[Rfam]
RNA sequence: AUCACUUCUCGGCCUUUUGGCUAAGAUCAAGUGAAGAAAUUCUCAGAUUCUUAAAAGGAGCUGGACAUUUUCAUCAAUGUUUAUUUCAAAGGCAGGUUGAUACAUUGAUUAUAAAUAUGGGAUCUCACAUUUUUUUAAUCCAGUUAUGAGGGACACAGCUCUCUUUCAUUGCUUUGUAA
Dot-bracket structure: ......(((.((((....)))).))).................(((.((........)).))).(((((......)))))............................(((.(....((.(....).))....).)))...(((.(.(((((.........)))))..).)))......
The family of this 179-nucleotide RNA from Erinaceus europaeus is "U2 spliceosomal RNA".
The family is grouped with related families in Rfam's "U2 clan".
The organism belongs to Erinaceus, within Eukaryota.
The family's RNA type in Rfam is spliceosomal small nuclear RNA.